A member of the RNA family "RNase MRP" from Terfezia boudieri, 514 nucleotides long.
Rfam links the family to the GO terms ribonuclease MRP activity, ribonuclease MRP complex and rRNA processing.
NCBI's taxonomy places the organism under Eukaryota, Ascomycota, Pezizomycotina, Pezizomycetes, Terfezia boudieri.
RNA sequence: UCCUCGCUCAAAGAAUCGCUAUCGAAGCACACAAACGGAGAGCUCCCGCCUCGUGUGGGACUCUCACACUUGAUCAUGCUUUGGGAGAAAGUCCCCGGACAACAUCAACUCUUUUAUUAGGGCUGAAGCGGAAACGCGCCGGCAUAGAAGUUCUGCGGCUCACUUCCCGCCUUUCACCGUCGUCGCUCAUCGGCCCACCUCUCAUCACUGGCGUCACAUAUACCAAACAUAUGUCUUUCUUGAACCCUACUAUAGCCUGAGAACAUUGCCUUUGCUCGACCAGUGGCGACGAUAUGAGCCCGCAGCGAAGGUGGCGGGGCCGGGCUAAUGGUUGGGCUUAGGGGGAUAUGUGGUGUGCUUGUCAGGUGUGGGGUAGGGAAGGAGAGUAGGAUGUGUAUAUGGAGGGCGGGAAAACUUUUCGUCAAAGACUAAGGAUAGUUAUGCGAUUGCCUUGUAGAUGGGACGAGAGUCCCGGAUAGGGGGUAACACAAUGGGGCUCACUCUUGAUGCGAGG
Numbered sequence: 001u002c003c004u005c006g007c008u009c010a011a012a013g014a015a016u017c018g019c020u021a022u023c024g025a026a027g028c029a030c031a032c033a034a035a036c037g038g039a040g041a042g043c044u045c046c047c048g049c050c051u052c053g054u055g056u057g058g059g060a061c062u063c064u065c066a067c068a069c070u071u072g073a074u075c076a077u078g079c080u081u082u083g084g085g086a087g088a089a090a091g092u093c094c095c096c097g098g099a100c101a102a103c104a105u106c107a108a109c110u111c112u113u114u115u116a117u118u119a120g121g122g123c124u125g126a127a128g129c130g131g132a133a134a135c136g137c138g139c140c141g142g143c144a145u146a147g148a149a150g151u152u153c154u155g156c157g158g159c160u161c162a163c164u165u166c167c168c169g170c171c172u173u174u175c176a177c178c179g180u181c182g183u184c185g186c187u188c189a190u191c192g193g194c195c196c197a198c199c200u201c202u203c204a205u206c207a208c209u210g211g212c213g214u215c216a217c218a219u220a221u222a223c224c225a226a227a228c229a230u231a232u233g234u235c236u237u238u239c240u241u242g243a244a245c246c247c248u249a250c251u252a253u254a255g256c257c258u259g260a261g262a263a264c265a266u267u268g269c270c271u272u273u274g275c276u277c278g279a280c281c282a283g284u285g286g287c288g289a290c291g292a293u294a295u296g297a298g299c300c301c302g303c304a305g306c307g308a309a310g311g312u313g314g315c316g317g318g319g320c321c322g323g324g325c326u327a328a329u330g331g332u333u334g335g336g337c338u339u340a341g342g343g344g345g346a347u348a349u350g351u352g353g354u355g356u357g358c359u360u361g362u363c364a365g366g367u368g369u370g371g372g373g374u375a376g377g378g379a380a381g382g383a384g385a386g387u388a389g390g391a392u393g394u395g396u397a398u399a400u401g402g403a404g405g406g407c408g409g410g411a412a413a414a415c416u417u418u419u420c421g422u423c424a425a426a427g428a429c430u431a432a433g434g435a436u437a438g439u440u441a442u443g444c445g446a447u448u449g450c451c452u453u454g455u456a457g458a459u460g461g462g463a464c465g466a467g468a469g470u471c472c473c474g475g476a477u478a479g480g481g482g483g484u485a486a487c488a489c490a491a492u493g494g495g496g497c498u499c500a501c502u503c504u505u506g507a508u509g510c511g512a513g514g
Stems, first nucleotide, its partner, number of pairs: 002514006008507004014448006022085001023083006038065005044059003090498002093496004128137003229417001236413006245406004450483004455478001